RNA sequence: UGGUGGCUCCAACCGGGACUAAAGGUCCCUGCCCCAACGGCUACUGCGUGCAGUGGAGGUGGUAGGGACCUUUAGUCCCGGUUGGAGCCACCAA
Numbered sequence: 001u002g003g004u005g006g007c008u009c010c011a012a013c014c015g016g017g018a019c020u021a022a023a024g025g026u027c028c029c030u031g032c033c034c035c036a037a038c039g040g041c042u043a044c045u046g047c048g049u050g051c052a053g054u055g056g057a058g059g060u061g062g063u064a065g066g067g068a069c070c071u072u073u074a075g076u077c078c079c080g081g082u083u084g085g086a087g088c089c090a091c092c093a094a
Stems, first nucleotide, its partner, number of pairs: 003091027033061001035059001038056001044050001
RNA: MIR5387 microRNA precursor family
Organism: Miscanthus lutarioriparius